[Rfam]
RNA sequence: GGAGAGGCUGUAAACAUCCUUGACUGGAAGCUGGGACACCGAGGGCUUUCAGUCGGAUGUUUGCAGCCUCUUA
Number, nucleotide and partner (000 for none) at each position: 001g000002g072003a071004g070005a069006g068007g000008c066009u065010g064011u063012a062013a061014a060015c059016a058017u057018c056019c055020u000021u000022g000023a053024c052025u051026g050027g049028a048029a047030g046031c045032u044033g000034g000035g000036a000037c000038a000039c000040c000041g000042a000043g000044g032045g031046c030047u029048u028049u027050c026051a025052g024053u023054c000055g019056g018057a017058u016059g015060u014061u013062u012063g011064c010065a009066g008067c000068c006069u005070c004071u003072u002073a000